The record is a 185-nucleotide RNA sequence from Erpetoichthys calabaricus, which matches "U2 spliceosomal RNA" in Rfam.
The source organism's lineage runs through Eukaryota, Opisthokonta, Teleostomi, Polypteriformes and Erpetoichthys.
By type it is a spliceosomal small nuclear RNA.
RNA sequence: AAACCUUGUCUGUUAAAAAAAAAAAAAAAAAAUCUGUUCUUAUCAAUUUAAUAUCUGGUAUGUCCCCUAUCUGGGGACCAUAUAUUAAAUUGAUUUUCGGUACAGGGAGACGAAAUAGGGGCUUUCUUCAUUCACUCCACGCAUCAACCUGGUAUUGCAGUACUUCCAGGAGCGGUGCACUUUCU
Numbered sequence: 001a002a003a004c005c006u007u008g009u010c011u012g013u014u015a016a017a018a019a020a021a022a023a024a025a026a027a028a029a030a031a032a033u034c035u036g037u038u039c040u041u042a043u044c045a046a047u048u049u050a051a052u053a054u055c056u057g058g059u060a061u062g063u064c065c066c067c068u069a070u071c072u073g074g075g076g077a078c079c080a081u082a083u084a085u086u087a088a089a090u091u092g093a094u095u096u097u098c099g100g101u102a103c104a105g106g107g108a109g110a111c112g113a114a115a116u117a118g119g120g121g122c123u124u125u126c127u128u129c130a131u132u133c134a135c136u137c138c139a140c141g142c143a144u145c146a147a148c149c150u151g152g153u154a155u156u157g158c159a160g161u162a163c164u165u166c167c168a169g170g171a172g173c174g175g176u177g178c179a180c181u182u183u184c185u
Base pairs, nucleotide, nucleotide: 007020041060042059043058044057045056062078063077064076065075066074067073106138107137108136109135112132113131118129119128120127121126141178142177143176144175145174148170149169150168151167152166
Clan: U2 clan.
For this family Rfam cites "The uRNA database" (Zwieb, Nucleic Acids Res, 1997).